Shown here is an 80-nucleotide RNA from Cajanus cajan, a member of the family "Small nucleolar RNA Z199".
Rfam classes the family as a C/D-box small nucleolar RNA.
From the family's description: snoZ199 is a C/D box small nucleolar RNA, which acts as a methylation guide RNA for sites on 18S and 25S rRNA. Rice snoZ199 is reported to be homologous to Arabidopsis snoR13.
The organism belongs to Cajanus, within Eukaryota.
The literature on the family includes a 2003 paper in Nucleic Acids Res by Chen et al., "The high diversity of snoRNAs in plants: identification and comparative study of 120 snoRNA genes from Oryza sativa".
Its family is annotated with nucleolus and RNA processing in the Gene Ontology.
RNA sequence: GGUCAAUUGAUGACAUACUAACUGCAAGGAUAUGAUUGGAUCUUAUUCCAUGAUUCAUUGUAUUUAAGUCUCUGAUGAUC
Number, nucleotide and partner (000 for none) at each position: 001g079002g000003u078004c077005a076006a000007u000008u000009g000010a000011u000012g000013a000014c000015a000016u000017a000018c000019u000020a000021a000022c000023u000024g000025c000026a000027a000028g000029g000030a000031u000032a000033u000034g000035a000036u000037u000038g048039g047040a046041u045042c000043u000044u000045a041046u040047u039048c038049c000050a000051u000052g000053a000054u000055u000056c000057a000058u000059u000060g000061u000062a000063u000064u000065u000066a000067a000068g000069u000070c000071u000072c000073u000074g000075a000076u005077g004078a003079u001080c000